[Rfam]
RNA sequence: CCAUGGGCUCGCGCCCAUGGCUAUAUGCUACCGCUGCUCCGCAGCU
Number, nucleotide and partner (000 for none) at each position: 001c020002c019003a018004u017005g016006g015007g014008c013009u000010c000011g000012c000013g008014c007015c006016c005017a004018u003019g002020g001021c000022u000023a000024u000025a000026u000027g000028c000029u000030a000031c000032c000033g045034c044035u043036g042037c041038u000039c000040c000041g037042c036043a035044g034045c033046u000